The record is a 79-nucleotide RNA sequence from Polypterus senegalus, which matches "mir-19 microRNA precursor family" in Rfam. The family's consensus secondary structure was predicted with RNAalifold. Rfam links the family to the GO terms RISC complex and miRNA-mediated post-transcriptional gene silencing. Its Rfam clan is "mir-19 clan".
[Rfam]
RNA sequence: GAUCCCAGUAAGUUUUGCAUGUUUGCAUCUUAGCUAUAAAGUCAGUGCUGUGCAAAUCCAUGCAAAACUCAUUGUGGUC
Number, nucleotide and partner (000 for none) at each position: 001g000002a000003u077004c076005c000006c074007a073008g072009u071010a000011a069012g068013u067014u066015u065016u064017g063018c062019a061020u000021g058022u056023u055024u054025g053026c052027a051028u050029c000030u000031u000032a049033g048034c047035u000036a000037u000038a000039a000040a000041g000042u000043c000044a000045g000046u000047g034048c033049u032050g028051u027052g026053c025054a024055a023056a022057u000058c021059c000060a000061u019062g018063c017064a016065a015066a014067a013068c012069u011070c000071a009072u008073u007074g006075u000076g004077g003078u000079c000